Overview:
mir-190 microRNA precursor family: a 76-nucleotide RNA from Neogale vison. Rfam 15.1 lists 1,667 matches to the family in 854 species. The base pairs follow the family's consensus structure, which was predicted with RNAalifold.
[Rfam]
RNA sequence: GCUUCUGUGUGAUAUGUUUGAUAUUGGGUUGUUUGGUCAGGAGCCAACUGAAUAUCGAACAUACUCUCACGGAGGC
Numbered sequence: 001g002c003u004u005c006u007g008u009g010u011g012a013u014a015u016g017u018u019u020g021a022u023a024u025u026g027g028g029u030u031g032u033u034u035g036g037u038c039a040g041g042a043g044c045c046a047a048c049u050g051a052a053u054a055u056c057g058a059a060c061a062u063a064c065u066c067u068c069a070c071g072g073a074g075g076c
Stems, first nucleotide, its partner, number of pairs: 005072005011065001013063013027049005